[Rfam]
RNA sequence: UUGGUUGGUAGAAAUCCAAUCCCCUCAAUUUACAAUUUAAGAUGAGAAAGAUUUCCCCAUUGGUAGCAAAUGCUUACCUCUUAAGCGGGGGAAAU
Numbered sequence: 001u002u003g004g005u006u007g008g009u010a011g012a013a014a015u016c017c018a019a020u021c022c023c024c025u026c027a028a029u030u031u032a033c034a035a036u037u038u039a040a041g042a043u044g045a046g047a048a049a050g051a052u053u054u055c056c057c058c059a060u061u062g063g064u065a066g067c068a069a070a071u072g073c074u075u076a077c078c079u080c081u082u083a084a085g086c087g088g089g090g091g092a093a094a095u
Stems, first nucleotide, its partner, number of pairs: 005019004055090004059081001062078005